[Rfam]
A member of the RNA family "Small Cajal body specific RNA 16" from Monodelphis domestica, 180 nucleotides long. About the family: scaRNAs are a specific class of small nuclear RNAs which localise to the Cajal bodies and guide the modification of RNA polymerase II transcribed spliceosomal RNAs U1, U2, U4, U5 and U12. ACA47 belongs to the H/ACA box class of guide RNAs as it has the predicted hairpin-hinge-hairpin-tail structure, the conserved H/ACA-box motifs and is found associated with GAR1. ACA47 is predicted to guide the pseudouridylation of residue U5 of the U1 spliceosomal snRNA. Pairs were carried over by alignment from the consensus structure, which was predicted with RNAfold. The family has 37 seed sequences and 790 matches in Rfam 15.1. It is annotated as a small Cajal body RNA.

Nucleotides: 180
Stems, first nucleotide, its partner, number of pairs: 003080004008075002015069004019064004024060002026054005032048003092106003115175009126164001131159003135155004141150003
Number, partner (000 for none) and nucleotide at each position: 001000a002000u003080g004079g005078u006077c007000u008075g009074a010000a011000a012000a013000a014000a015069g016068g017067c018066u019064a020063c021062u022061g023000u024060g025059u026054g027053g028052u029051u030050g031000a032048a033047c034046c035000c036000c037000a038000g039000a040000a041000a042000c043000c044000u045000g046034g047033g048032u049000g050030c051029a052028g053027c054026c055000c056000u057000g058000u059025a060024c061022c062021a063020g064019u065000u066018a067017g068016c069015c070000u071000g072000a073000c074009u075008u076000u077006g078005a079004c080003c081000u082000a083000g084000a085000g086000u087000a088000a089000a090000u091000u092106c093105c094104c095000a096000g097000g098000a099000a100000a101000a102000a103000u104094g105093g106092g107000a108000u109000u110000u111000u112000a113000a114000u115175u116174u117173u118172g119171c120170a121169g122168u123167a124000a125000c126164a127000g128000g129000u130000g131159u132158g133157a134000g135155c136154a137153u138152u139000c140000u141150a142149g143148c144000a145000g146000c147000a148143g149142u150141u151000u152138g153137a154136u155135g156000a157133u158132c159131a160000u161000g162000u163000a164126u165000a166000a167123u168122a169121c170120u171119g172118c173117a174116a175115a176000c177000a178000a179000u180000a